Burkholderia RNA 11: a 122-nucleotide RNA sequence from Burkholderiales bacterium PBB6. The base pairs follow the family's consensus structure, which was predicted with RNAfold. Its family is annotated with protein binding in the Gene Ontology. It scores 93 bits against the family's covariance model. The source organism's lineage runs through Bacteria, Pseudomonadati, Pseudomonadota, Betaproteobacteria and Burkholderiales. Rfam describes the family as follows. Co-purified with Hfq, expression confirmed by Northern blot. It is annotated as a small RNA.
[Rfam]
RNA sequence: GCAACCUCAAGCUGGCGCACGGCAACCUGGUGGUGUUCCGCUCGCUGCUGGGCAUCUCGUGGCUGUGGUUCUUCGGCGCGGUCUUCCUCGGCCAGUUCCCGUCGUUCGCGAAGGACGUGCUG
Numbered sequence: 001g002c003a004a005c006c007u008c009a010a011g012c013u014g015g016c017g018c019a020c021g022g023c024a025a026c027c028u029g030g031u032g033g034u035g036u037u038c039c040g041c042u043c044g045c046u047g048c049u050g051g052g053c054a055u056c057u058c059g060u061g062g063c064u065g066u067g068g069u070u071c072u073u074c075g076g077c078g079c080g081g082u083c084u085u086c087c088u089c090g091g092c093c094a095g096u097u098c099c100c101g102u103c104g105u106u107c108g109c110g111a112a113g114g115a116c117g118u119g120c121u122g
Base pairs, nucleotide, nucleotide: 010049011048012047014045017041018040021037022036023035024034026032051121052120053119054118055117057115058114060112064104065103067099068098071095072094074090075089078088080087081086